[Rfam]
RNA: serC leader
RNA sequence: CUCAGGGACAGCCCUCCCCAGGCAGCAGUUCUGGGCAGGAGGAGUCAACCCCAGGGCAUCCUAGAGGGCCACACAUCUGGAAGGAUGAUGAGC
Numbered sequence: 001c002u003c004a005g006g007g008a009c010a011g012c013c014c015u016c017c018c019c020a021g022g023c024a025g026c027a028g029u030u031c032u033g034g035g036c037a038g039g040a041g042g043a044g045u046c047a048a049c050c051c052c053a054g055g056g057c058a059u060c061c062u063a064g065a066g067g068g069c070c071a072c073a074c075a076u077c078u079g080g081a082a083g084g085a086u087g088a089u090g091a092g093c
Base pairs, nucleotide, nucleotide: 011069012068013067014066015065016064074087075086076085077084078083